[Rfam]
RNA: mir-2 microRNA precursor family
Organism: Bicyclus anynana
RNA sequence: UCACUCACGAAGUGGCUGUGAUGUGUCUUGCAUCCAUAACACAGCCAGCUUUGAUGAGCGACA
Numbered sequence: 001u002c003a004c005u006c007a008c009g010a011a012g013u014g015g016c017u018g019u020g021a022u023g024u025g026u027c028u029u030g031c032a033u034c035c036a037u038a039a040c041a042c043a044g045c046c047a048g049c050u051u052u053g054a055u056g057a058g059c060g061a062c063a
Stems, first nucleotide, its partner, number of pairs: 005057003008053005013047008024038003